The family of this 83-nucleotide RNA sequence from Varanus komodoensis is "mir-184 microRNA precursor family". Pairs were carried over by alignment from the consensus structure, which was predicted with PFOLD. Rfam 15.1 lists 948 matches to the family in 823 species. The source organism's lineage runs through Eukaryota, Opisthokonta, Craniata, Dipnotetrapodomorpha and Varanus.
RNA sequence: CCACUCGCGUGUCCUUAUCACUUUUCCAGCCAGCUUUCUCACUGUAACCGUUGGACGGAGAACUGAUAAGGGUAUGUGGGUGG
Numbered sequence: 001c002c003a004c005u006c007g008c009g010u011g012u013c014c015u016u017a018u019c020a021c022u023u024u025u026c027c028a029g030c031c032a033g034c035u036u037u038c039u040c041a042c043u044g045u046a047a048c049c050g051u052u053g054g055a056c057g058g059a060g061a062a063c064u065g066a067u068a069a070g071g072g073u074a075u076g077u078g079g080g081u082g083g
Base pairs, nucleotide, nucleotide: 012072013071014070015069016068017067018066019065020064022062023061024060025059026058027057030054031053